[Rfam]
RNA sequence: UCCUAGCCCAGAUAGCAGUGGAAAUCCUUUUCUUGUUUUUCUUUAAAACAAGAAAAGAUUGUAACGAAUAGCUGGAAAAAGC
Numbered sequence: 001u002c003c004u005a006g007c008c009c010a011g012a013u014a015g016c017a018g019u020g021g022a023a024a025u026c027c028u029u030u031u032c033u034u035g036u037u038u039u040u041c042u043u044u045a046a047a048a049c050a051a052g053a054a055a056a057g058a059u060u061g062u063a064a065c066g067a068a069u070a071g072c073u074g075g076a077a078a079a080a081g082c
Stems, first nucleotide, its partner, number of pairs: 009074003013070002018065002023060004029055011

Shown here is an 82-nucleotide RNA sequence from Flavobacterium muglaense, a member of the family "Flavo-1 RNA". A search with the family's covariance model found it, with a score of 82 bits. The family's RNA type in Rfam is small RNA. NCBI's taxonomy places the organism under Bacteria, Bacteroidota, Flavobacteriales, Flavobacteriaceae, Flavobacterium.